[Rfam]
RNA sequence: GCCCGCUGCCCUCCUUGGGCGUUUCCUCCCUAGACUUGGGCCGCUCCGUUCGCGUGAGCGGCCCCUUUCUUUUUUGGGC
Numbered sequence: 001g002c003c004c005g006c007u008g009c010c011c012u013c014c015u016u017g018g019g020c021g022u023u024u025c026c027u028c029c030c031u032a033g034a035c036u037u038g039g040g041c042c043g044c045u046c047c048g049u050u051c052g053c054g055u056g057a058g059c060g061g062c063c064c065c066u067u068u069c070u071u072u073u074u075u076g077g078g079c
Stems, first nucleotide, its partner, number of pairs: 008020004038064009
RNA: Makes More Granules Regulator RNA (mmgR)